[Rfam]
RNA sequence: AGCACUUGUGUAUGUGUUUGCUGAACUGAUGGGCAAAGACAUAAAAAAUAGGUGCAAAAUAAAACCCUCUUUUGCAACACAGAAUUCAUUUUUCAGUUUGAGUUUUAAUGCAUAUAAGAAUCAAGCUA
Numbered sequence: 001a002g003c004a005c006u007u008g009u010g011u012a013u014g015u016g017u018u019u020g021c022u023g024a025a026c027u028g029a030u031g032g033g034c035a036a037a038g039a040c041a042u043a044a045a046a047a048a049u050a051g052g053u054g055c056a057a058a059a060u061a062a063a064a065c066c067c068u069c070u071u072u073u074g075c076a077a078c079a080c081a082g083a084a085u086u087c088a089u090u091u092u093u094c095a096g097u098u099u100g101a102g103u104u105u106u107a108a109u110g111c112a113u114a115u116a117a118g119a120a121u122c123a124a125g126c127u128a
Stems, first nucleotide, its partner, number of pairs: 002055008011046001014040002017037005026031001064127001066125001068123001070119005081106008
Dot-bracket structure: .((((((((.(..((.(((((....(....).))))).)).....).))))))))........(.(.(.(((((......((((((((..........))))))))........)))))...).).).
A member of the RNA family "Small nucleolar RNA SNORA40" from Nannospalax galili, 128 nucleotides long. Lineage of the source: Eukaryota > Metazoa > Boreoeutheria > Spalacinae > Nannospalax. The literature on the family includes a 1997 paper in J Mol Biol by Ofengand and Bakin, "Mapping to nucleotide resolution of pseudouridine residues in large subunit ribosomal RNAs from representative eukaryotes, prokaryotes, archaebacteria, mitochondria and chloroplasts".